[Rfam]
RNA: ylbH leader
RNA sequence: AUAAGAAAAAACCCGCAGGCAAACUGCGGGCUGUCUUUACGCAUCAAACGAUGCAAGACAAUGGGAGAGGAGAAACCGGCGGAAAACUUAUGGGGAAACGUAAGCAUCCGCGGUUG
Numbered sequence: 001a002u003a004a005g006a007a008a009a010a011a012c013c014c015g016c017a018g019g020c021a022a023a024c025u026g027c028g029g030g031c032u033g034u035c036u037u038u039a040c041g042c043a044u045c046a047a048a049c050g051a052u053g054c055a056a057g058a059c060a061a062u063g064g065g066a067g068a069g070g071a072g073a074a075a076c077c078g079g080c081g082g083a084a085a086a087c088u089u090a091u092g093g094g095g096a097a098a099c100g101u102a103a104g105c106a107u108c109c110g111c112g113g114u115u116g
Base pairs, nucleotide, nucleotide: 012030013029014028015027016026017025018024032065034063036061041054042053043052044051045050077113079111080110081109082108083107087104088103089102090101